[Rfam]
RNA sequence: AGAGGGUAUGUAUGAUGAUUCAAUUAGAUGUGUGAAAGGUUUAUUCCUUUUUGAACUCAACAUUUUUGAGGCAUAUCCAUUCAUAUACCUGACUACUCUCU
Numbered sequence: 001a002g003a004g005g006g007u008a009u010g011u012a013u014g015a016u017g018a019u020u021c022a023a024u025u026a027g028a029u030g031u032g033u034g035a036a037a038g039g040u041u042u043a044u045u046c047c048u049u050u051u052u053g054a055a056c057u058c059a060a061c062a063u064u065u066u067u068g069a070g071g072c073a074u075a076u077c078c079a080u081u082c083a084u085a086u087a088c089c090u091g092a093c094u095a096c097u098c099u100c101u
Base pairs, nucleotide, nucleotide: 001101002100003099004098005097006096007095008094010093
RNA: Small nucleolar RNA Z266
Organism: Lupinus angustifolius